[Rfam]
RNA sequence: GCUAUGAUGCCGAAGCCAGCCUGUGUUUAUCCGUUGACGCAGGCGGUGUACGUCAUAACGUGCGUGAAUCAUUAUCAGAAGUCU
Number, nucleotide and partner (000 for none) at each position: 001g000002c000003u000004a000005u000006g000007a000008u000009g000010c000011c000012g000013a000014a000015g047016c046017c045018a000019g044020c043021c042022u041023g040024u039025g038026u037027u036028u000029a000030u000031c000032c000033g000034u000035u000036g027037a026038c025039g024040c023041a022042g021043g020044c019045g017046g016047u015048g063049u062050a061051c060052g059053u058054c000055a000056u000057a000058a053059c052060g051061u050062g049063c048064g000065u000066g000067a000068a000069u000070c000071a000072u000073u000074a000075u000076c000077a000078g000079a000080a000081g000082u000083c000084u000
Rfam assigns this 84-nucleotide RNA sequence to the family "Peptidase-S11 RNA".